[Rfam]
RNA sequence: GGGCCAUCCCCGGGGGACCGCUGACGCGCGGUUGAGAGGGAGGCAGCAGCCUUCGACCCGCUGAACCUGAUCCGGCUGACACCGGCGUAGGGAGUGGGCGUGGCUUCAUC
Numbered sequence: 001g002g003g004c005c006a007u008c009c010c011c012g013g014g015g016g017a018c019c020g021c022u023g024a025c026g027c028g029c030g031g032u033u034g035a036g037a038g039g040g041a042g043g044c045a046g047c048a049g050c051c052u053u054c055g056a057c058c059c060g061c062u063g064a065a066c067c068u069g070a071u072c073c074g075g076c077u078g079a080c081a082c083c084g085g086c087g088u089a090g091g092g093a094g095u096g097g098g099c100g101u102g103g104c105u106u107c108a109u110c
Base pairs, nucleotide, nucleotide: 007098008097009096011060012059013058014057016054017032018031019030020029021028040053041052042051043050066091067090068089069088072085073084074083075082
A member of the RNA family "TPP riboswitch aptamer (THI element)" from Sphingomonas sp. G-3-2-10, 110 nucleotides long. The base pairs follow the family's consensus structure, which is taken from published work. Vitamin B(1) in its active form thiamin pyrophosphate (TPP) is an essential coenzyme that is synthesised by coupling of pyrimidine and thiazole moieties in bacteria. NCBI's taxonomy places the organism under Bacteria, Pseudomonadota, Alphaproteobacteria, Sphingomonadaceae, Sphingomonas. The match comes from Rfam's covariance-model search (60 bits).